A member of the RNA family "MIR845_2 microRNA precursor family" from Vitis rotundifolia, 131 nucleotides long. For this family Rfam cites "The grapevine genome sequence suggests ancestral hexaploidization in major angiosperm phyla" (Jaillon et al., Nature, 2007). Rfam links the family to the GO terms miRNA-mediated post-transcriptional gene silencing and RISC complex.
RNA sequence: AAAGAACACAUUAAUUAUCCUUGAGGUCAUGGGAUAAACAAAAACUAUGCAAAAACAAGUUAGCACUCCCUAGAAUGGUUCUAACAUGAUUACUAACCUAUGACUUUGAUACCAGUUGAAGAGAAAAACCC
Numbered sequence: 001a002a003a004g005a006a007c008a009c010a011u012u013a014a015u016u017a018u019c020c021u022u023g024a025g026g027u028c029a030u031g032g033g034a035u036a037a038a039c040a041a042a043a044a045c046u047a048u049g050c051a052a053a054a055a056c057a058a059g060u061u062a063g064c065a066c067u068c069c070c071u072a073g074a075a076u077g078g079u080u081c082u083a084a085c086a087u088g089a090u091u092a093c094u095a096a097c098c099u100a101u102g103a104c105u106u107u108g109a110u111a112c113c114a115g116u117u118g119a120a121g122a123g124a125a126a127a128a129c130c131c
Stems, first nucleotide, its partner, number of pairs: 009121001011119006022108012048086002053080002056077002060073004
Taxonomically the source falls in Vitis (Eukaryota, Streptophytina, rosids, Vitaceae).